[Rfam]
RNA sequence: GGUAGUUCUCGGGGCGGGGUGAAAGUCCCCACCGGCGGUGAUGCCCUUCAACUCAGGGACGAGCCCGCGAGCGCUCUCAUCGGACACGAUGUGAGGUCAGCAGAUUCUGGUGAGAUUCCGGAGCCGACGGUCAUAGUCCGGAUACGAGAGAACGGCA
Numbered sequence: 001g002g003u004a005g006u007u008c009u010c011g012g013g014g015c016g017g018g019g020u021g022a023a024a025g026u027c028c029c030c031a032c033c034g035g036c037g038g039u040g041a042u043g044c045c046c047u048u049c050a051a052c053u054c055a056g057g058g059a060c061g062a063g064c065c066c067g068c069g070a071g072c073g074c075u076c077u078c079a080u081c082g083g084a085c086a087c088g089a090u091g092u093g094a095g096g097u098c099a100g101c102a103g104a105u106u107c108u109g110g111u112g113a114g115a116u117u118c119c120g121g122a123g124c125c126g127a128c129g130g131u132c133a134u135a136g137u138c139c140g141g142a143u144a145c146g147a148g149a150g151a152a153c154g155g156c157a
Stems, first nucleotide, its partner, number of pairs: 003155001005153006017029003031137002033126002035068004063124002071101002106122005128140003
Shown here is a 157-nucleotide sequence from Gordonia malaquae, a member of the family "FMN riboswitch aptamer (RFN element)". The family's consensus secondary structure is taken from published work. A search with the family's covariance model found it, with a score of 99 bits.